[Rfam]
The family of this 130-nucleotide sequence from Dichanthelium oligosanthes is "Small nucleolar RNA SNORA72". It scores 44 bits against the family's covariance model. Rfam's curators write: U72 is a member of the H/ACA class of snoRNAs. The snoRNA gene is located in intron 4 of the ribosomal L30 protein gene in human, mouse and chicken. A reference for the family is Ganot et al. (1997), "The family of box ACA small nucleolar RNAs is defined by an evolutionarily conserved secondary structure and ubiquitous sequence elements essential for RNA accumulation", Genes Dev.

RNA sequence: UUGAAUAUUUUAAACCGGCACUGAUGUUGGGAUUAUCAGUGCCGGGUAAAUAUUUUUAAUUGGCACUGAUAUAUCAGUGCCGGUUCAAUUUUUUUAUCCGGCACUGAUGUUAUGAUACUGCGCGGGAAAA
Dot-bracket structure: ..(((..........(((((((((((.......)))))))))))..........))).....((.(.(.....((((((((((..............))))))))))..........).).)).......
Numbered sequence: 001u002u003g004a005a006u007a008u009u010u011u012a013a014a015c016c017g018g019c020a021c022u023g024a025u026g027u028u029g030g031g032a033u034u035a036u037c038a039g040u041g042c043c044g045g046g047u048a049a050a051u052a053u054u055u056u057u058a059a060u061u062g063g064c065a066c067u068g069a070u071a072u073a074u075c076a077g078u079g080c081c082g083g084u085u086c087a088a089u090u091u092u093u094u095u096a097u098c099c100g101g102c103a104c105u106g107a108u109g110u111u112a113u114g115a116u117a118c119u120g121c122g123c124g125g126g127a128a129a130a
Stems, first nucleotide, its partner, number of pairs: 003057003016044011063123002066120001068118001074107010